About this RNA
A member of the RNA family "Giardia snoRNA GlsR1" from Giardia duodenalis, 85 nucleotides long. Pairs were carried over by alignment from the consensus structure. Taxonomically the source falls in Giardia duodenalis (Eukaryota, Fornicata, Diplomonadida, Giardia). For this family Rfam cites "The profile of snoRNA-derived microRNAs that regulate expression of variant surface proteins in Giardia lamblia" (Li et al., Cell Microbiol, 2012). Gene Ontology terms of the family: RNA processing and nucleolus. Rfam classes the family as a C/D-box small nucleolar RNA.
Nucleotides: 085
Base pairs, nucleotide, nucleotide: 025075026074027073028072029071030070033066034065035064036063040061041060043058045056048054
Number, partner (000 for none) and nucleotide at each position: 001000a002000u003000c004000c005000a006000c007000c008000a009000g010000u011000c012000u013000c014000u015000c016000u017000g018000g019000a020000g021000a022000c023000a024000g025075a026074u027073g028072a029071u030070g031000a032000c033066u034065u035064u036063g037000c038000g039000a040061c041060g042000g043058g044000c045056g046000g047000a048054c049000g050000g051000a052000g053000g054048g055000a056045c057000a058043c059000g060041u061040g062000a063036c064035g065034a066033a067000u068000u069000c070030u071029g072028u073027c074026g075025u076000a077000u078000u079000c080000u081000g082000a083000a084000u085000u